[Rfam]
RNA sequence: CACUGUUCAUGAUGAUUCUUAUAAAACAAUGGGAAUCUCUCUGAAAAAGAAUGAAAGAGAUCAGCGUACUGAAACAGUG
Numbered sequence: 001c002a003c004u005g006u007u008c009a010u011g012a013u014g015a016u017u018c019u020u021a022u023a024a025a026a027c028a029a030u031g032g033g034a035a036u037c038u039c040u041c042u043g044a045a046a047a048a049g050a051a052u053g054a055a056a057g058a059g060a061u062c063a064g065c066g067u068a069c070u071g072a073a074a075c076a077g078u079g
Base pairs, nucleotide, nucleotide: 001079002078003077004076005075006074007073

Small nucleolar RNA SNORD79: a 79-nucleotide sequence from Anabarilius grahami. Its Rfam clan is "SNORD74 clan". Rfam's curators write: snoRNA U79 or Z22 is found in intron 7 of the gas5 gene in humans and is also present in mice. Gene Ontology terms of the family: nucleolus and RNA processing. On this family, see Smith and Steitz, Mol Cell Biol 1998: "Classification of gas5 as a multi-small-nucleolar-RNA (snoRNA) host gene and a member of the 5'-terminal oligopyrimidine gene family reveals common features of snoRNA host genes".